[Rfam]
Nucleotides: 085
Stems, first nucleotide, its partner, number of pairs: 012037002017032006040079004046075002048071003055065004
Number, partner (000 for none) and nucleotide at each position: 001000g002000u003000u004000c005000u006000u007000g008000a009000a010000g011000g012037g013036c014000a015000a016000a017032c018031c019030u020029g021028u022027c023000g024000a025000a026000a027022g028021g029020c030019a031018g032017g033000g034000a035000c036013g037012c038000a039000a040079a041078g042077c043076c044000a045000a046075g047074g048071g049070u050069c051000u052000a053000a054000u055065u056064c057063g058062c059000u060000c061000u062058g063057c064056g065055a066000u067000a068000u069050g070049a071048c072000a073000g074047c075046c076043g077042g078041u079040u080000g081000c082000u083000a084000g085000a
Overview
A member of the RNA family "c-di-GMP-I riboswitch aptamer" from Desulfotruncus arcticus, 85 nucleotides long. Its family is annotated with cyclic-di-GMP binding in the Gene Ontology. The family's consensus secondary structure is taken from published work.